[Rfam]
Nucleotides: 100
Stems, first nucleotide, its partner, number of pairs: 018086008029049007058076001060074004
Number, partner (000 for none) and nucleotide at each position: 001000c002000u003000a004000u005000g006000a007000u008000g009000a010000a011000c012000a013000u014000a015000u016000a017000c018086u019085u020084u021083u022082c023081g024080u025079a026000u027000a028000u029049c030048c031047u032046u033045a034044a035043c036000g037000a038000u039000a040000c041000g042000g043035g044034u045033u046032a047031a048030g049029g050000g051000u052000u053000u054000c055000u056000a057000c058076u059000c060074g061073g062072a063071a064000c065000c066000g067000u068000a069000a070000a071063u072062u073061c074060c075000a076058g077000g078000c079025u080024a081023c082022g083021a084020a085019a086018a087000a088000a089000u090000u091000g092000g093000c094000a095000c096000a097000g098000u099000g100000c